RNA sequence: CAACCUCUAGCGAUAGUCGUGCAAGUUG
Numbered sequence: 001c002a003a004c005c006u007c008u009a010g011c012g013a014u015a016g017u018c019g020u021g022c023a024a025g026u027u028g
Stems, first nucleotide, its partner, number of pairs: 001028004008023001010020004
The record is a 28-nucleotide RNA from Chryseobacterium sp. Leaf394, which matches "L19-Flavobacteria ribosomal protein leader" in Rfam.